The record is a 269-nucleotide sequence from Paenibacillus sp. FSL R7-0331, which matches "T-box leader" in Rfam. By type it is a cis-regulatory leader.

RNA sequence: ACAAAUGCAGUGAUGGAGACAAGUACGCAGUGCCUGGCCAACAGGGAGGAGACGCCGCAGAUUGAGAGCGUUUCUGGGAGAGCAGAGCUGCCGAAGUUCACUCCGGAGCAGUUCCCUGAAUAUUUGAGUAGGGGAUACCGGCCGCAGACCGUUAUUUCUGUUAAAGUGAGACAGGUCUUUACCGUGCCCGAAGAGGGAAUACCUCUUUUUAUAGGGAUAGGGUACAGCUUGUCUAACAAGGGUGGUACCACGGUCUUUUCGUCCCUUAC
Numbered sequence: 001a002c003a004a005a006u007g008c009a010g011u012g013a014u015g016g017a018g019a020c021a022a023g024u025a026c027g028c029a030g031u032g033c034c035u036g037g038c039c040a041a042c043a044g045g046g047a048g049g050a051g052a053c054g055c056c057g058c059a060g061a062u063u064g065a066g067a068g069c070g071u072u073u074c075u076g077g078g079a080g081a082g083c084a085g086a087g088c089u090g091c092c093g094a095a096g097u098u099c100a101c102u103c104c105g106g107a108g109c110a111g112u113u114c115c116c117u118g119a120a121u122a123u124u125u126g127a128g129u130a131g132g133g134g135a136u137a138c139c140g141g142c143c144g145c146a147g148a149c150c151g152u153u154a155u156u157u158c159u160g161u162u163a164a165a166g167u168g169a170g171a172c173a174g175g176u177c178u179u180u181a182c183c184g185u186g187c188c189c190g191a192a193g194a195g196g197g198a199a200u201a202c203c204u205c206u207u208u209u210u211a212u213a214g215g216g217a218u219a220g221g222g223u224a225c226a227g228c229u230u231g232u233c234u235a236a237c238a239a240g241g242g243u244g245g246u247a248c249c250a251c252g253g254u255c256u257u258u259u260c261g262u263c264c265c266u267u268a269c
Base pairs, nucleotide, nucleotide: 007109008108015104016103017102018101027091028090029089030088031087038077039076048075049074050073051072052071053070054069055068113135114134115133116132117131139151140150141149169234170233171232172231173230174229175228239266240265241264242263250262251261252260253259
A search with the family's covariance model found it, with a score of 103 bits. A reference for the family is Grundy et al. (1994), "Interaction between the acceptor end of tRNA and the T box stimulates antitermination in the Bacillus subtilis tyrS gene: a new role for the discriminator base", J Bacteriol.